[Rfam]
RNA: Small nucleolar RNA SNORA61
RNA sequence: UCCCUCCAGAUCCCUUUCCCAUCAGAUCUGAAUACCGAUCUCGUGGUCGAAAAAGGAGGAAAAACAAAAUUCGAACUGGUCUGGAGCUCGUUGCGGGUGCAGUCCUGCUCUGAGAGAG
Numbered sequence: 001u002c003c004c005u006c007c008a009g010a011u012c013c014c015u016u017u018c019c020c021a022u023c024a025g026a027u028c029u030g031a032a033u034a035c036c037g038a039u040c041u042c043g044u045g046g047u048c049g050a051a052a053a054a055g056g057a058g059g060a061a062a063a064a065c066a067a068a069a070u071u072c073g074a075a076c077u078g079g080u081c082u083g084g085a086g087c088u089c090g091u092u093g094c095g096g097g098u099g100c101a102g103u104c105c106u107g108c109u110c111u112g113a114g115a116g117a118g
Base pairs, nucleotide, nucleotide: 003059004058005057006056007055019046020045021044023043025040026039027038028037076107078105079104081102082101087097088096089095090094